Overview:
A member of the RNA family "mir-24 microRNA precursor family" from Oncorhynchus kisutch, 70 nucleotides long. The match comes from Rfam's covariance-model search (82 bits). From the family's description: This family represents the microRNA (miRNA) mir-24 family. miRNAs are transcribed as ~70nt precursors (modelled here) and subsequently processed by the Dicer enzyme to give a ~22nt product. In this case the mature sequence comes from the 3' arm of the precursor. The extents of the hairpin precursors are not generally known and are estimated based on hairpin prediction. The products are thought to have regulatory roles through complementarity to mRNA. The involvement of Dicer in miRNA processing suggests a relationship with the phenomenon of RNA interference. miRNAs are numbered based on the sequence of the mature RNA. miR-24 has been identified in human and mouse. The family has 63 seed sequences and 1,372 matches in Rfam 15.1. The family's consensus secondary structure was predicted with RNAalifold.

RNA sequence: CCCUCCUGUGCCUACUGAACUGGUAUCAGUUUGAACUCUGAGUACUGGCUCAGUUCAGCAGGAACAGGAG
Numbered sequence: 001c002c003c004u005c006c007u008g009u010g011c012c013u014a015c016u017g018a019a020c021u022g023g024u025a026u027c028a029g030u031u032u033g034a035a036c037u038c039u040g041a042g043u044a045c046u047g048g049c050u051c052a053g054u055u056c057a058g059c060a061g062g063a064a065c066a067g068g069a070g
Stems, first nucleotide, its partner, number of pairs: 003070004008065002011062003015058009026048005